[Rfam]
RNA sequence: AGCACCAUUCUAUGUUUGGGAAUUUUCCCCGUUCCUGGUUAUACUGUAGUGCAAAAGAAUUCCUGGCUCUUUAUUACACAGUGGACUUGUGCCAUUUUGCUGUUGCUUUAUGGAGUUGAGGAACAUUA
Numbered sequence: 001a002g003c004a005c006c007a008u009u010c011u012a013u014g015u016u017u018g019g020g021a022a023u024u025u026u027c028c029c030c031g032u033u034c035c036u037g038g039u040u041a042u043a044c045u046g047u048a049g050u051g052c053a054a055a056a057g058a059a060u061u062c063c064u065g066g067c068u069c070u071u072u073a074u075u076a077c078a079c080a081g082u083g084g085a086c087u088u089g090u091g092c093c094a095u096u097u098u099g100c101u102g103u104u105g106c107u108u109u110a111u112g113g114a115g116u117u118g119a120g121g122a123a124c125a126u127u128a
Stems, first nucleotide, its partner, number of pairs: 002045001007040001009038002014034001017031004060123005065117006072110002077105002079102004084097002
The record is a 128-nucleotide sequence from Nannospalax galili, which matches "Small nucleolar RNA SNORA46" in Rfam. The family has 22 seed sequences and 582 matches in Rfam 15.1. Rfam links the family to the GO terms RNA processing and nucleolus. By type it is an H/ACA-box small nucleolar RNA. Rfam describes the family as follows. ACA46 is a member of the H/ACA class of snoRNA that guide the sites of modification of uridines to pseudouridines. The match comes from Rfam's covariance-model search (96 bits).